[Rfam]
RNA sequence: CUGUGAGGUAGAGGCGCGAAAUCUAACAGUCUUUAGCAGAGCUAGAGAGAGCUAUGAAGCUAUAGAGAAGGGGAUUUUGCCGAAGUUUGUAAUAUAUCUCAGUAUUACUUGCUGGGUCUACAGUUAAGAACUGUAGGACUGUCUUAAUAAGCUACCCGGUUUAUUAAGUUGCGCUAUCUCAAAU
Dot-bracket structure: .....((((((....(((((((((......((.((((.....................)))).))......)))))))))...(((..(((((((......)))))))..)))((.((((((((.....)))))))).))..(((((((((........))))))))).....)))))).....

The family of this 184-nucleotide RNA from Clostridium cadaveris is "Lysine riboswitch aptamer".